RNA sequence: CUGCAUGUACAGCUAAGAGAGCCGUCUAUUGACAGUUCGAUAUAUUGUUACUGUCAUGGAGUUGCUCUCUUAAAAUGUUCAUGC
Dot-bracket structure: .............(((((.(((..((((..(((.((.............)).))).))))...))).)))))............
Numbered sequence: 001c002u003g004c005a006u007g008u009a010c011a012g013c014u015a016a017g018a019g020a021g022c023c024g025u026c027u028a029u030u031g032a033c034a035g036u037u038c039g040a041u042a043u044a045u046u047g048u049u050a051c052u053g054u055c056a057u058g059g060a061g062u063u064g065c066u067c068u069c070u071u072a073a074a075a076u077g078u079u080c081a082u083g084c
Stems, first nucleotide, its partner, number of pairs: 014072005020066003025060004031055003035051002

Overview:
Shown here is an 84-nucleotide RNA from Acrobeloides nanus, a member of the family "mir-46/mir-47/mir-281 microRNA precursor family". For this family Rfam cites "An abundant class of tiny RNAs with probable regulatory roles in Caenorhabditis elegans" (Lau et al., Science, 2001). It scores 68 bits against the family's covariance model.